[Rfam]
Background: Shown here is an 85-nucleotide RNA sequence, a member of the family "c-di-GMP-II-GAG riboswitch aptamer". Pairs were carried over by alignment from the consensus structure, which is taken from published work. Its family is annotated with regulation of gene expression and cyclic-di-GMP binding in the Gene Ontology. For this family Rfam cites "Bioinformatic analysis of riboswitch structures uncovers variant classes with altered ligand specificity" (Weinberg et al., Proc Natl Acad Sci U S A, 2017). The family is grouped with related families in Rfam's "c-di-GMP_II riboswitch clan". The sequence is in the family's curated seed alignment.
RNA sequence: UCCUGCGGCAGUGGCGAGGAACACCCGACUGUACCUCGGUCGCCUGGUCGGGUGGGAGCUAGUGGCGAGACCGCCUGCUGGCGCG
Numbered sequence: 001u002c003c004u005g006c007g008g009c010a011g012u013g014g015c016g017a018g019g020a021a022c023a024c025c026c027g028a029c030u031g032u033a034c035c036u037c038g039g040u041c042g043c044c045u046g047g048u049c050g051g052g053u054g055g056g057a058g059c060u061a062g063u064g065g066c067g068a069g070a071c072c073g074c075c076u077g078c079u080g081g082c083g084c085g
Base pairs, nucleotide, nucleotide: 001085003083006080007079008078009077010076011075013060014059015058022054023053024052025051026050027049028048029047038072039071040068041067042066043065044064